[Rfam]
RNA: c-di-GMP-I riboswitch aptamer
RNA sequence: AAUAAAGAAAGGCAAACCUACUGAAAGGUAGGGGCGCAAAGCUAGAGGGUCUAAGGGGGAACCUAUGACAGCCAGUUGCUCCG
Numbered sequence: 001a002a003u004a005a006a007g008a009a010a011g012g013c014a015a016a017c018c019u020a021c022u023g024a025a026a027g028g029u030a031g032g033g034g035c036g037c038a039a040a041g042c043u044a045g046a047g048g049g050u051c052u053a054a055g056g057g058g059g060a061a062c063c064u065a066u067g068a069c070a071g072c073c074a075g076u077u078g079c080u081c082c083g
Stems, first nucleotide, its partner, number of pairs: 012037002017032006040077004047073002049069003056063002